Overview: Group II catalytic intron D1-D4-1: an 85-nucleotide sequence from Thermosinus carboxydivorans. Gene Ontology term of the family: Group II intron splicing. Pairs were carried over by alignment from the consensus structure. The literature on the family includes a 2001 paper in EMBO J by Chu et al., "Control of branch-site choice by a group II intron". Group II introns are found in rRNA, tRNA and mRNA of organelles in fungi, plants and protists, and also in mRNA in bacteria. Lineage of the source: Bacteria > Negativicutes > Selenomonadales > Sporomusaceae > Thermosinus carboxydivorans.
[Rfam]
RNA sequence: CAACCCGGGUCGAGAGGCUCGGCUGAGCCGGCAGGAGUCAGCAGAGGGCAUAGUACCUCGAAGGUCAUGAACUUCAGGGGAGGCC
Numbered sequence: 001c002a003a004c005c006c007g008g009g010u011c012g013a014g015a016g017g018c019u020c021g022g023c024u025g026a027g028c029c030g031g032c033a034g035g036a037g038u039c040a041g042c043a044g045a046g047g048g049c050a051u052a053g054u055a056c057c058u059c060g061a062a063g064g065u066c067a068u069g070a071a072c073u074u075c076a077g078g079g080g081a082g083g084c085c
Stems, first nucleotide, its partner, number of pairs: 001025002005022007038045002047085003056078003061074002